[Rfam]
RNA sequence: UAUAUUGUAUAUACUGAACGUUGUAUAAUCUCAAUAAUAUGGUUUGAGAGUCUCUACCGGAUACCGUAAAAAUCCUGAUUACACGUAAAAUGUACAUUUA
Number, nucleotide and partner (000 for none) at each position: 001u000002a000003u000004a000005u000006u000007g000008u000009a000010u000011a000012u000013a000014c000015u000016g000017a000018a086019c085020g084021u083022u000023g082024u081025a080026u000027a000028a000029u049030c048031u047032c046033a045034a044035u000036a000037a000038u000039a000040u000041g000042g000043u000044u034045u033046g032047a031048g030049a029050g000051u000052c000053u000054c000055u000056a000057c000058c077059g075060g074061a073062u072063a000064c000065c000066g000067u000068a000069a000070a000071a000072a062073u061074c060075c059076u000077g058078a000079u000080u025081a024082c023083a021084c020085g019086u018087a000088a000089a000090a000091u000092g000093u000094a000095c000096a000097u000098u000099u000100a000
RNA: Purine riboswitch aptamer
Organism: Paenibacillaceae bacterium